[Rfam]
RNA: transfer-messenger RNA
RNA sequence: GGGGAUGUUAUUGGCUUCGACGCCGGUGAUGAAACUCAUAGAUGCAUGCCGAGAGCGCAUUUUCUCUCGUAAAUAAAAUUUGCAUUUAAAUAGUCGCAAACGACGAAACUUACGCUCUAGCUGCCUAAGGGCCGCUUGUCCGCUUCCUAGAAUACUUGUGGUCUGGGAACCCGACUGAAGCGCACGCACACAAGUCCGUAUAGAGUCAAGCCUCGGGGCUUUAUACCAAACUUAGAGGAUCGCACCUUGUACCCUGUUCGUCGGGUCACUUGGUGUUAAAACAAUAGACGAUAUCUAAGCAUGUAGUAUUCUCGAGCGUAGUGCUGGCGGACGCGGGUUCAACUCCCGCCAUCUCCACCA
Number, nucleotide and partner (000 for none) at each position: 001g356002g355003g354004g353005a352006u351007g350008u000009u000010a000011u000012u000013g000014g000015c000016u000017u000018c000019g000020a000021c329022g328023c327024c326025g325026g324027u323028g322029a000030u320031g000032a000033a000034a000035c316036u315037c314038a000039u000040a312041g311042a310043u000044g000045c303046a302047u301048g300049c299050c069051g068052a067053g066054a065055g000056c000057g000058c000059a080060u000061u078062u077063u000064c000065u054066c053067u052068c051069g050070u000071a000072a000073a000074u000075a000076a000077a062078a061079u000080u059081u000082g000083c000084a000085u000086u000087u000088a000089a000090a000091u000092a000093g000094u000095c000096g000097c000098a000099a000100a000101c000102g000103a000104c000105g000106a000107a000108a000109c000110u000111u000112a000113c000114g000115c000116u000117c138118u000119a136120g135121c134122u000123g132124c131125c000126u000127a000128a000129g000130g000131g124132c123133c000134g121135c120136u119137u000138g117139u000140c000141c182142g181143c180144u179145u178146c177147c000148u000149a000150g000151a000152a000153u000154a195155c194156u193157u192158g191159u190160g189161g000162u000163c000164u000165g000166g000167g000168a000169a000170c000171c000172c000173g000174a000175c000176u000177g146178a145179a144180g143181c142182g141183c000184a000185c000186g000187c000188a000189c160190a159191c158192a157193a156194g155195u154196c000197c000198g226199u225200a224201u223202a222203g221204a220205g219206u218207c000208a000209a240210g000211c238212c237213u236214c235215g000216g000217g000218g206219c205220u204221u203222u202223a201224u200225a199226c198227c000228a000229a000230a000231c000232u000233u000234a000235g214236a213237g212238g211239a000240u209241c000242g276243c275244a274245c273246c272247u000248u000249g269250u268251a000252c265253c264254c263255u000256g295257u000258u293259c000260g289261u288262c287263g254264g253265g252266u000267c000268a250269c249270u000271u000272g246273g245274u244275g243276u242277u000278a000279a000280a000281a000282c000283a000284a000285u000286a000287g262288a261289c260290g000291a000292u000293a258294u000295c256296u000297a000298a000299g049300c048301a047302u046303g045304u000305a000306g000307u000308a000309u000310u042311c041312u040313c000314g037315a036316g035317c000318g000319u000320a030321g000322u028323g027324c026325u025326g024327g023328c022329g021330g000331a000332c000333g349334c348335g347336g346337g345338u000339u000340c000341a000342a000343c000344u000345c337346c336347c335348g334349c333350c007351a006352u005353c004354u003355c002356c001357a000358c000359c000360a000